[Rfam]
RNA sequence: ACAAAAGCAUAGACGGAGACGAGUACGAGGAACGCCUUCGCCCAGCGAGUCUGGGAUGGUGAGAGCAGACGCGAAAGAGCCCUCGAAAAAUCCCUCCUGAGCCGCUCGCAAAAAGCCCCGAUACGCAGGGGUCAGUAGACCGAGCCGGAGUCGUACGCCGUUACCAGUGACGAGGGCAUGUUGGUGUCCUGUAAGGAGUGCCCCGAUGAUGUCGGGGAAAAAGGGUGGUACCGCGGGAGUUAAUGUCCCGUCCCUUGA
Number, nucleotide and partner (000 for none) at each position: 001a000002c000003a000004a000005a000006a000007g102008c101009a000010u000011a000012g000013a000014c000015g097016g096017a095018g094019a000020c000021g000022a000023g000024u000025a000026c085027g084028a083029g082030g081031a000032a000033c000034g000035c000036c000037u000038u074039c073040g072041c000042c000043c000044a000045g000046c000047g000048a000049g070050u069051c068052u067053g066054g000055g000056a000057u000058g000059g000060u000061g000062a000063g000064a000065g000066c053067a052068g051069a050070c049071g000072c040073g039074a038075a000076a000077g000078a000079g000080c000081c030082c029083u028084c027085g026086a000087a000088a000089a000090a000091u000092c000093c000094c018095u017096c016097c015098u000099g000100a000101g008102c007103c000104g000105c144106u143107c142108g141109c000110a000111a000112a000113a000114a000115g000116c000117c000118c000119c000120g000121a000122u000123a000124c000125g000126c000127a000128g000129g000130g000131g000132u000133c000134a000135g000136u000137a000138g000139a000140c000141c108142g107143a106144g105145c000146c160147g159148g158149a000150g000151u000152c000153g000154u000155a000156c000157g000158c148159c147160g146161u000162u000163a000164c000165c000166a000167g000168u000169g000170a000171c000172g000173a000174g000175g000176g000177c000178a000179u000180g000181u000182u000183g000184g000185u000186g000187u000188c000189c000190u000191g000192u000193a000194a000195g000196g000197a000198g000199u000200g000201c217202c216203c215204c214205g213206a212207u211208g000209a000210u000211g207212u206213c205214g204215g203216g202217g201218a000219a000220a000221a000222a255223g254224g253225g252226u000227g000228g000229u000230a000231c000232c000233g251234c250235g249236g248237g247238a000239g000240u000241u000242a000243a000244u000245g000246u000247c237248c236249c235250g234251u233252c225253c224254c223255u222256u000257g000258a000